[Rfam]
RNA: MIR2950 microRNA precursor family
Organism: Durio zibethinus
RNA sequence: CAUGGGUUUAUGUUAUAUUCCAUCUCUUGCACACUGGACUGUCUGGUGCUGGCUUCAGGCUUGUGUGCAAGGGGUGGAAUAUUUCAUUGAAUCAUG
Numbered sequence: 001c002a003u004g005g006g007u008u009u010a011u012g013u014u015a016u017a018u019u020c021c022a023u024c025u026c027u028u029g030c031a032c033a034c035u036g037g038a039c040u041g042u043c044u045g046g047u048g049c050u051g052g053c054u055u056c057a058g059g060c061u062u063g064u065g066u067g068c069a070a071g072g073g074g075u076g077g078a079a080u081a082u083u084u085c086a087u088u089g090a091a092u093c094a095u096g
Base pairs, nucleotide, nucleotide: 001096002095003094004093005092007090008089010087011086012085015082016081017080018079019078020077021076022075023074024073025072026071027070028069029068030067031066032065033064034063036061037060039058